A member of the RNA family "Bacterial RNase P class A" from Candidatus Electronema aureum, 376 nucleotides long.
RNA sequence: UGGGGCGAACGCAUGAUCGCUCCGGUCUUAGUACCGGGGAGGAAAGUCCGAACACCGCAGAGCACGGUGGUUCUUAACAGGAACGCCGGGAAACCGGGGGAAAGUGCCACAGAAAAUACACCGCCGAUGGGACAGGUAACUGUUCACAGGUAAGGUUGAAAUGGCGAGGUAAGAGCUUCACCGCUUUCAUGGUGACAUGAAAGGCAAGGCAAACCCCACCGGGUGCAAGACCAAAUAGGGAAACGUUUGAGGGCUGCUCGCCUGAAGUUUCCGGGUAGGUUGCACGAGGUGCUGGGCAACCGGCAUCCAAGUCAAAUGAUCAUGGCCUGCGGCAGUAAUGCAGGAACAGAAUUCGGCUUAUAGUCCGCCCCAAUUU
Numbered sequence: 001u002g003g004g005g006c007g008a009a010c011g012c013a014u015g016a017u018c019g020c021u022c023c024g025g026u027c028u029u030a031g032u033a034c035c036g037g038g039g040a041g042g043a044a045a046g047u048c049c050g051a052a053c054a055c056c057g058c059a060g061a062g063c064a065c066g067g068u069g070g071u072u073c074u075u076a077a078c079a080g081g082a083a084c085g086c087c088g089g090g091a092a093a094c095c096g097g098g099g100g101a102a103a104g105u106g107c108c109a110c111a112g113a114a115a116a117u118a119c120a121c122c123g124c125c126g127a128u129g130g131g132a133c134a135g136g137u138a139a140c141u142g143u144u145c146a147c148a149g150g151u152a153a154g155g156u157u158g159a160a161a162u163g164g165c166g167a168g169g170u171a172a173g174a175g176c177u178u179c180a181c182c183g184c185u186u187u188c189a190u191g192g193u194g195a196c197a198u199g200a201a202a203g204g205c206a207a208g209g210c211a212a213a214c215c216c217c218a219c220c221g222g223g224u225g226c227a228a229g230a231c232c233a234a235a236u237a238g239g240g241a242a243a244c245g246u247u248u249g250a251g252g253g254c255u256g257c258u259c260g261c262c263u264g265a266a267g268u269u270u271c272c273g274g275g276u277a278g279g280u281u282g283c284a285c286g287a288g289g290u291g292c293u294g295g296g297c298a299a300c301c302g303g304c305a306u307c308c309a310a311g312u313c314a315a316a317u318g319a320u321c322a323u324g325g326c327c328u329g330c331g332g333c334a335g336u337a338a339u340g341c342a343g344g345a346a347c348a349g350a351a352u353u354c355g356g357c358u359u360a361u362a363g364u365c366c367g368c369c370c371c372a373a374u375u376u
Stems, first nucleotide, its partner, number of pairs: 001372007009364002011361001012324007020039007044359003048356005053225004060259004065221005070084005086097004099216002104214002106210003121155002123151003128146004163182002166179002168176001183205001184203008229281004239272006251263004288307008

The match comes from Rfam's covariance-model search (291 bits).
Pairs were carried over by alignment from the consensus structure, which is taken from published work.
Taxonomically the source falls in Candidatus Electronema (Bacteria, Pseudomonadati, Desulfobulbales, Desulfobulbaceae).